Shown here is a 105-nucleotide RNA sequence from Cocos nucifera, a member of the family "mir-172 microRNA precursor family". mir-172 has been experimentally verified in Arabidopsis thaliana. This family is thought to target mRNAs coding for APETALA2-like transcription factors. The organism belongs to Cocos, within Eukaryota.

RNA sequence: GUGUUUGCGGGUGUAGCAUCAUCAAGAUUCACAUAGCCCUGGGCGAUUGCGAGUUCGCGACACGGUCCCAAAUGAGAAUCUUGAUGAUGCUGCAUCAGCAAUAAG
Numbered sequence: 001g002u003g004u005u006u007g008c009g010g011g012u013g014u015a016g017c018a019u020c021a022u023c024a025a026g027a028u029u030c031a032c033a034u035a036g037c038c039c040u041g042g043g044c045g046a047u048u049g050c051g052a053g054u055u056c057g058c059g060a061c062a063c064g065g066u067c068c069c070a071a072a073u074g075a076g077a078a079u080c081u082u083g084a085u086g087a088u089g090c091u092g093c094a095u096c097a098g099c100a101a102u103a104a105g
Stems, first nucleotide, its partner, number of pairs: 010096021032074002